[Rfam]
RNA sequence: CAAGCAAGCCAAGGACCAUAUGUUUUUGUGUUACACUUUCAGCAUCUAAGCUUAUUAUAUUCAACACAAGGAGAAAGUCCCCGGAAAACAAAAUAUCUUCUGUCCAAUGAUUAAAGAUUAGGCAGUGGGUAUUUAGUAAAGCUAACUUUGUUUUGUUUGUUUUUUUCAUAAUAAAAAGUAAUAUGGUCACCCUAUAAUAAUGGGGCAACUUAAUGGGGCUUACUCUGGCUUGUUU
Numbered sequence: 001c002a003a004g005c006a007a008g009c010c011a012a013g014g015a016c017c018a019u020a021u022g023u024u025u026u027u028g029u030g031u032u033a034c035a036c037u038u039u040c041a042g043c044a045u046c047u048a049a050g051c052u053u054a055u056u057a058u059a060u061u062c063a064a065c066a067c068a069a070g071g072a073g074a075a076a077g078u079c080c081c082c083g084g085a086a087a088a089c090a091a092a093a094u095a096u097c098u099u100c101u102g103u104c105c106a107a108u109g110a111u112u113a114a115a116g117a118u119u120a121g122g123c124a125g126u127g128g129g130u131a132u133u134u135a136g137u138a139a140a141g142c143u144a145a146c147u148u149u150g151u152u153u154u155g156u157u158u159g160u161u162u163u164u165u166u167c168a169u170a171a172u173a174a175a176a177a178g179u180a181a182u183a184u185g186g187u188c189a190c191c192c193u194a195u196a197a198u199a200a201u202g203g204g205g206c207a208a209c210u211u212a213a214u215g216g217g218g219c220u221u222a223c224u225c226u227g228g229c230u231u232g233u234u235u
Base pairs, nucleotide, nucleotide: 002235003234004233005232006231007230008229009228010227011226014188015187016186017185018184019183025071026069027068028067029066030065031064039054041052042051043050075221076220077219079218080217081216082215088103089102090101092099093098105159106158107157122156123155124154125153129151130150131149133145134144135143136142137141190205191204192203193202194201195200
RNA: RNase MRP